This 130-nucleotide sequence from Pteropus vampyrus belongs to the Rfam family "Small nucleolar RNA SNORA20".
Rfam describes the family as follows. ACA20 is a member of the H/ACA class of snoRNA that guide the sites of modification of uridines to pseudouridines.
Its Rfam clan is "SNORA20 clan".

RNA sequence: UUUCCCAUUUAUUUGCUGCUAUAGUCUUUCAGUGAUAUGAGCAGUUAUACGCAUGGGAUAAAAAAACAUUGGGCCAUUGCAAGUUGAGAUGGAAUAAUGGUUUCCUCUCUUCUGCAUAGUCUAGACAUUG
Number, nucleotide and partner (000 for none) at each position: 001u000002u000003u058004c057005c056006c055007a054008u053009u000010u000011a000012u000013u000014u000015g045016c044017u043018g042019c041020u040021a000022u037023a036024g000025u035026c034027u000028u000029u000030c000031a000032g000033u000034g026035a025036u023037a022038u000039g000040a020041g019042c018043a017044g016045u015046u000047a000048u000049a000050c000051g000052c000053a008054u007055g006056g005057g004058a003059u000060a000061a000062a000063a000064a000065a000066a000067c000068a000069u124070u123071g122072g121073g120074c119075c000076a117077u000078u116079g115080c114081a113082a000083g000084u000085u000086g109087a108088g107089a106090u000091g104092g103093a102094a101095u100096a000097a000098u000099g000100g095101u094102u093103u092104c091105c000106u089107c088108u087109c086110u000111u000112c000113u081114g080115c079116a078117u076118a000119g074120u073121c072122u071123a070124g069125a000126c000127a000128u000129u000130g000

Lineage of the source: Eukaryota > Opisthokonta > Craniata > Teleostomi > Pteropus. Its family is annotated with nucleolus and RNA processing in the Gene Ontology. The family's RNA type in Rfam is H/ACA-box small nucleolar RNA.